[Rfam]
Description:
Nuclear RNase P: a 276-nucleotide RNA from Opisthorchis felineus. By type it is a ribozyme. The organism belongs to Opisthorchis, within Eukaryota. On this family, see Marquez et al., RNA 2005: "Structural implications of novel diversity in eucaryal RNase P RNA". The base pairs follow the family's consensus structure, which is taken from published work. Clan: RNaseP clan.

RNA sequence: GCCGCGCGGAGAGCGCAUGUACGAGGCUAGUGAGGGUGCUUGUCACUCGAUUGUCUCGUGGGAAGGUCUGAGACUAUCAACCGAUAUCCCCGUGAGGGGGGGCCACCUUGAGGGGGCGCGGGACUAACAGAAAUGGCUCCUGAGAGGCGCCACGACGCGGUGACCGGGCCUGUGAGCUCGUGAGUGGGAGGUGCCAUCACGGAAUGAGAUGACCGUGUUGAGCGCGUGAAGCGAGAUUAGCGCACGAAACCCAAUUCAGACUACUCCCGCAGCGGC
Numbered sequence: 001g002c003c004g005c006g007c008g009g010a011g012a013g014c015g016c017a018u019g020u021a022c023g024a025g026g027c028u029a030g031u032g033a034g035g036g037u038g039c040u041u042g043u044c045a046c047u048c049g050a051u052u053g054u055c056u057c058g059u060g061g062g063a064a065g066g067u068c069u070g071a072g073a074c075u076a077u078c079a080a081c082c083g084a085u086a087u088c089c090c091c092g093u094g095a096g097g098g099g100g101g102g103c104c105a106c107c108u109u110g111a112g113g114g115g116g117c118g119c120g121g122g123a124c125u126a127a128c129a130g131a132a133a134u135g136g137c138u139c140c141u142g143a144g145a146g147g148c149g150c151c152a153c154g155a156c157g158c159g160g161u162g163a164c165c166g167g168g169c170c171u172g173u174g175a176g177c178u179c180g181u182g183a184g185u186g187g188g189a190g191g192u193g194c195c196a197u198c199a200c201g202g203a204a205u206g207a208g209a210u211g212a213c214c215g216u217g218u219u220g221a222g223c224g225c226g227u228g229a230a231g232c233g234a235g236a237u238u239a240g241c242g243c244a245c246g247a248a249a250c251c252c253a254a255u256u257c258a259g260a261c262u263a264c265u266c267c268c269g270c271a272g273c274g275g276c
Base pairs, nucleotide, nucleotide: 001276002275003274004273007269008268009267013243014242015241016240021059022058023057024056025055034048035047036046037045038044068259069258070257071256072255078220079219080218081217087101088100089099090098091097102117103116104115106113107112118216119215120214122213124211138203139202140201